The family of this 156-nucleotide sequence from Crinalium epipsammum is "Ribosomal protein L10 leader".
It scores 56 bits against the family's covariance model.
From the family's description: This family is a putative r-protein leader autoregulatory structure found in B. subtilis and other low-GC Gram-positive bacteria.
[Rfam]
RNA sequence: CAAUUAACUGAAUAGACACCAAAGACAGCAGGCGCUAUUGCUUAAUAUCCUGCCGAGGUUGAUUGAGACAGAAUUAGUCUUGCCACUAAAAAAAUGGCGCGACCAAAAAUGUCAACCAAAACCUCGGCUUAAUAUCCGGGGUUUUGUUUUGGCUUU
Number, nucleotide and partner (000 for none) at each position: 001c000002a000003a000004u000005u000006a000007a000008c000009u000010g000011a000012a000013u000014a000015g000016a000017c000018a000019c000020c000021a000022a000023a000024g000025a000026c000027a000028g053029c052030a051031g050032g049033c000034g041035c040036u000037a000038u000039u000040g035041c034042u000043u000044a000045a000046u000047a000048u000049c032050c031051u030052g029053c028054c000055g000056a000057g000058g000059u000060u000061g000062a000063u000064u000065g000066a000067g000068a000069c000070a000071g000072a000073a000074u000075u000076a000077g000078u000079c000080u000081u000082g000083c000084c000085a000086c000087u000088a000089a000090a000091a000092a000093a000094a000095u000096g000097g000098c000099g000100c000101g000102a000103c000104c000105a000106a000107a000108a000109a000110u000111g000112u000113c000114a000115a000116c000117c000118a000119a000120a000121a000122c141123c140124u139125c138126g137127g136128c000129u134130u000131a000132a000133u000134a129135u000136c127137c126138g125139g124140g123141g122142u000143u000144u000145u000146g000147u000148u000149u000150u000151g000152g000153c000154u000155u000156u000
The family's consensus secondary structure was predicted with CMfinder.